RNA sequence: AAUAAGUGUAGUCAUGGAAAUCCAUGUAUAACGUUUGACUGUCCAUCUUAUUUAAAAAAUUUAUGAGAAAAUUAAAAAAAAUUAGUCGCACGUACUAUUUAUGUUUUAUCAUCUAAUAACAAUAAAAAUAUUAAUCGUAAAAAAAUUUCAAAUAAGACGAACGGUCAAAUGUUAGACAUAAACAAUACAAAACUGUACUUAUU
Numbered sequence: 001a002a003u004a005a006g007u008g009u010a011g012u013c014a015u016g017g018a019a020a021u022c023c024a025u026g027u028a029u030a031a032c033g034u035u036u037g038a039c040u041g042u043c044c045a046u047c048u049u050a051u052u053u054a055a056a057a058a059a060u061u062u063a064u065g066a067g068a069a070a071a072u073u074a075a076a077a078a079a080a081a082u083u084a085g086u087c088g089c090a091c092g093u094a095c096u097a098u099u100u101a102u103g104u105u106u107u108a109u110c111a112u113c114u115a116a117u118a119a120c121a122a123u124a125a126a127a128a129u130a131u132u133a134a135u136c137g138u139a140a141a142a143a144a145a146u147u148u149c150a151a152a153u154a155a156g157a158c159g160a161a162c163g164g165u166c167a168a169a170u171g172u173u174a175g176a177c178a179u180a181a182a183c184a185a186u187a188c189a190a191a192a193c194u195g196u197a198c199u200u201a202u203u
Base pairs, nucleotide, nucleotide: 027176029174030173031172032171034169035168036167037166038165039164040163041162042161044159046157047156048155049154050153051152

The family of this 203-nucleotide sequence from Oryza rufipogon is "MIR812 microRNA precursor family". Gene Ontology terms of the family: miRNA-mediated post-transcriptional gene silencing and RISC complex. It scores 108 bits against the family's covariance model.